[Rfam]
RNA sequence: CCCUUUUGAUUGAUUUGUCUUUUUCCGCUUACUGCCGGUGGUGUUCGAAAGUCCCGACAGCAAACAGAAAAAGGCGCCUCAAUCAAUUACAG
Dot-bracket structure: .......(((.((...(.(((((((...((.(((.((.(..........)....)).)))..))..))))))).)...)).)))........
mir-316 microRNA precursor family: a 92-nucleotide RNA sequence from Culex quinquefasciatus. It is one of the family's seed sequences. The base pairs follow the family's consensus structure, which was predicted with RNAalifold. Its family is annotated with miRNA-mediated post-transcriptional gene silencing and RISC complex in the Gene Ontology. The source organism's lineage runs through Eukaryota, Pancrustacea, Diptera, Nematocera and Culex pipiens complex. A reference for the family is Aravin et al. (2003), "The small RNA profile during Drosophila melanogaster development", Dev Cell.